[Rfam]
RNA sequence: AGAUUGGCUUUAGCUUAACAGUUCCUUCUACAACAUAACAAUUUGGAAUCAAACUGCUGCUGGGUUGAGACCCACAGGCACUAACCAGCUCUUGA
Numbered sequence: 001a002g003a004u005u006g007g008c009u010u011u012a013g014c015u016u017a018a019c020a021g022u023u024c025c026u027u028c029u030a031c032a033a034c035a036u037a038a039c040a041a042u043u044u045g046g047a048a049u050c051a052a053a054c055u056g057c058u059g060c061u062g063g064g065u066u067g068a069g070a071c072c073c074a075c076a077g078g079c080a081c082u083a084a085c086c087a088g089c090u091c092u093u094g095a
Base pairs, nucleotide, nucleotide: 002090004088005087006086007085013079014078015077016076021072026069027068028067030065
RNA: Vault RNA
Organism: Cricetulus griseus